[Rfam]
RNA: Small nucleolar RNA SNORA70
Organism: Rousettus aegyptiacus
RNA sequence: UGAGAGCCAAUUAAGCCAACCGUGCUCUUUUCCCCAUGGAGGCGCAGUGUGCCAUGGGUGAAAACAGCAGCAUCCGUGGUAGUGCAUGCAGGCUGCUGCUUUUAUGGGUUGCCCUAAGGGACCUUGGAGACAUCC
Numbered sequence: 001u002g003a004g005a006g007c008c009a010a011u012u013a014a015g016c017c018a019a020c021c022g023u024g025c026u027c028u029u030u031u032c033c034c035c036a037u038g039g040a041g042g043c044g045c046a047g048u049g050u051g052c053c054a055u056g057g058g059u060g061a062a063a064a065c066a067g068c069a070g071c072a073u074c075c076g077u078g079g080u081a082g083u084g085c086a087u088g089c090a091g092g093c094u095g096c097u098g099c100u101u102u103u104a105u106g107g108g109u110u111g112c113c114c115u116a117a118g119g120g121a122c123c124u125u126g127g128a129g130a131c132a133u134c135c
Stems, first nucleotide, its partner, number of pairs: 002053001005050001019048002022045001025042002028039001078123003089111003093107002